[Rfam]
RNA sequence: ACGAUGUUCCGCUGCAGAAUAAGUUAGUUAUGCAAGAGCAUCUG
Number, nucleotide and partner (000 for none) at each position: 001a000002c000003g042004a041005u040006g039007u038008u037009c036010c000011g000012c000013u034014g033015c032016a031017g000018a029019a000020u000021a000022a000023g000024u000025u000026a000027g000028u000029u018030a000031u016032g015033c014034a013035a000036g009037a008038g007039c006040a005041u004042c003043u000044g000

Notes
A member of the RNA family "Ribosomal protein L19 leader" from Bacillus methanolicus, 44 nucleotides long. NCBI's taxonomy places the organism under Bacteria, Bacillati, Bacillota, Bacillaceae, Bacillus methanolicus. The family's RNA type in Rfam is cis-regulatory leader. For this family Rfam cites "Diverse mechanisms for regulating ribosomal protein synthesis in Escherichia coli" (Zengel and Lindahl, Prog Nucleic Acid Res Mol Biol, 1994). This family is a putative r-protein leader autoregulatory structure found in B. subtilis and other low-GC Gram-positive bacteria. It is located in the 5' untranslated regions of mRNAs encoding ribosomal protein L19 (rplS). The base pairs follow the family's consensus structure, which was predicted with CMfinder. Gene Ontology term of the family: regulation of gene expression.